Rfam assigns this 147-nucleotide sequence to the family "RT-3 RNA". The sequence is in the family's curated seed alignment. By type it is a small RNA. The base pairs follow the family's consensus structure, which is taken from published work.
[Rfam]
RNA sequence: AAUCGGCGUACAACACCGGGGACGUGUCCCCUACCGUGGUGCCGAGGGAAGCAAGCCACAGCAAAAGCGCACAGGUGCGGAAAGCUGAAAAAUCACGCGUCGGGUGGAGUUUGGUAGGCUCAAGUCAGCUCGAAGAAGUCAGACCCG
Numbered sequence: 001a002a003u004c005g006g007c008g009u010a011c012a013a014c015a016c017c018g019g020g021g022a023c024g025u026g027u028c029c030c031c032u033a034c035c036g037u038g039g040u041g042c043c044g045a046g047g048g049a050a051g052c053a054a055g056c057c058a059c060a061g062c063a064a065a066a067g068c069g070c071a072c073a074g075g076u077g078c079g080g081a082a083a084g085c086u087g088a089a090a091a092a093u094c095a096c097g098c099g100u101c102g103g104g105u106g107g108a109g110u111u112u113g114g115u116a117g118g119c120u121c122a123a124g125u126c127a128g129c130u131c132g133a134a135g136a137a138g139u140c141a142g143a144c145c146c147g
Base pairs, nucleotide, nucleotide: 003045004044005043006042007041008040011039013037014036018032019031020030021029047057048056059087060086061085062084068079069078070077071076101147102146103145104144105143107140108139110137111136112135117130118129119128120127